[Rfam]
Shown here is an 89-nucleotide sequence from Bifidobacterium stellenboschense, a member of the family "tRNA". The match comes from Rfam's covariance-model search (55 bits). By type it is a transfer RNA. The organism belongs to Bifidobacterium, within Bacteria.
RNA sequence: GCCCGGGUGGCGGAAUGGUAGACGCGCUAGCUUGAGGUGCUAGUGCCUAUUUUUUAACGGGCGUACGGGUUCAAGUCCCGUCUCGGGCA
Numbered sequence: 001g002c003c004c005g006g007g008u009g010g011c012g013g014a015a016u017g018g019u020a021g022a023c024g025c026g027c028u029a030g031c032u033u034g035a036g037g038u039g040c041u042a043g044u045g046c047c048u049a050u051u052u053u054u055u056a057a058c059g060g061g062c063g064u065a066c067g068g069g070u071u072c073a074a075g076u077c078c079c080g081u082c083u084c085g086g087g088c089a
Stems, first nucleotide, its partner, number of pairs: 001088007010025003027043005065081005